[Rfam]
RNA: mir-9193 microRNA precursor family
Organism: Pipistrellus kuhlii
RNA sequence: CUCGGGGCAGGGGUGGUGGUGCUUCAGCUGGGACUGCAAGAGGGUGCAUGCUAGGCUGAGGGACCCCACUGGUGCACG
Numbered sequence: 001c002u003c004g005g006g007g008c009a010g011g012g013g014u015g016g017u018g019g020u021g022c023u024u025c026a027g028c029u030g031g032g033a034c035u036g037c038a039a040g041a042g043g044g045u046g047c048a049u050g051c052u053a054g055g056c057u058g059a060g061g062g063a064c065c066c067c068a069c070u071g072g073u074g075c076a077c078g
Base pairs, nucleotide, nucleotide: 004075006073008071009070010069016067018065019064020063022061023060024059025058026057027056028055029054031052032051035048036047037046038045